[Rfam]
RNA sequence: UUGCAGUUGCUGGUCAAACGGAACCAAAUCGUGGUCUACGAUGGUUUGGUCCCCUUCAACCAGCUGCAGCCU
Numbered sequence: 001u002u003g004c005a006g007u008u009g010c011u012g013g014u015c016a017a018a019c020g021g022a023a024c025c026a027a028a029u030c031g032u033g034g035u036c037u038a039c040g041a042u043g044g045u046u047u048g049g050u051c052c053c054c055u056u057c058a059a060c061c062a063g064c065u066g067c068a069g070c071c072u
Stems, first nucleotide, its partner, number of pairs: 003070002006067001009064006017056002020052003024049007
The family of this 72-nucleotide RNA sequence from Eptatretus burgeri is "mir-133 microRNA precursor family". About the family: mir-133 was first experimentally characterised in mouse and homologues have since been discovered in several other species. The mature sequence is excised from the 3' arm of the hairpin. It scores 67 bits against the family's covariance model. Rfam 15.1 lists 3,763 matches to the family in 801 species. Lineage of the source: Eukaryota > Opisthokonta > Eumetazoa > Eptatretinae > Eptatretus. A reference for the family is Lagos-Quintana et al. (2002), "Identification of tissue-specific microRNAs from mouse", Curr Biol.